[Rfam]
RNA: Small nucleolar RNA snoR97
Organism: Capsella rubella
RNA sequence: UUGUUUUUUAGUGCUUGUAGUCUGAAAAAACUCAUAUAUCUUCAGUGUUCUCAUCAGCUUCGUCUCAUCUUUAUAACCAUGAGGCUAGAGUUAAACAAGUACACUACAUUA
Numbered sequence: 001u002u003g004u005u006u007u008u009u010a011g012u013g014c015u016u017g018u019a020g021u022c023u024g025a026a027a028a029a030a031c032u033c034a035u036a037u038a039u040c041u042u043c044a045g046u047g048u049u050c051u052c053a054u055c056a057g058c059u060u061c062g063u064c065u066c067a068u069c070u071u072u073a074u075a076a077c078c079a080u081g082a083g084g085c086u087a088g089a090g091u092u093a094a095a096c097a098a099g100u101a102c103a104c105u106a107c108a109u110u111a
Stems, first nucleotide, its partner, number of pairs: 044105005050099001056092005063084004